[Rfam]
RNA sequence: CAUCAAGGAUGACACAAACUGCAUGUAUUAGCUGACUGUGGUGAUGCGCAUCUGUUAGCUCUAGAAUUACCCUGAGAUGUG
Numbered sequence: 001c002a003u004c005a006a007g008g009a010u011g012a013c014a015c016a017a018a019c020u021g022c023a024u025g026u027a028u029u030a031g032c033u034g035a036c037u038g039u040g041g042u043g044a045u046g047c048g049c050a051u052c053u054g055u056u057a058g059c060u061c062u063a064g065a066a067u068u069a070c071c072c073u074g075a076g077a078u079g080u081g
Base pairs, nucleotide, nucleotide: 001079002078003077004076
This 81-nucleotide RNA sequence from Symbiodinium natans belongs to the Rfam family "Small nucleolar RNA SNORD45".
Its family is annotated with nucleolus and RNA processing in the Gene Ontology.
On this family, see Galardi et al., Mol Cell Biol 2002: "Purified box C/D snoRNPs are able to reproduce site-specific 2'-O-methylation of target RNA in vitro".
The base pairs follow the family's consensus structure, which was predicted with PFOLD.
The organism belongs to Symbiodinium, within Eukaryota.